[Rfam]
RNA sequence: AAAAAGGGCUUCUGUCAUGAGUGGCAUAUGCAGGGCAACUUGAUUGCUCUAAGUGCAGAAUUGACAUCAAGAGAUUUCGGAAGCAUAAUUUUUUGGUAUUUGGGCAGCUGGUGAUCGUUGGUCCCAAAGCCUGU
Dot-bracket structure: .......((((((((((....)))))(((..(((((((.....)))))))..)))(.(((((..........))))).)))))).................((((...(((.((((...)))))))..))))..
Rfam assigns this 134-nucleotide RNA from Mus musculus to the family "U11 spliceosomal RNA". Its Rfam clan is "U1 clan". The source organism's lineage runs through Eukaryota, Dipnotetrapodomorpha, Euarchontoglires, Rodentia and Mus. Pairs were carried over by alignment from the consensus structure, which is taken from published work. The family's RNA type in Rfam is spliceosomal small nuclear RNA.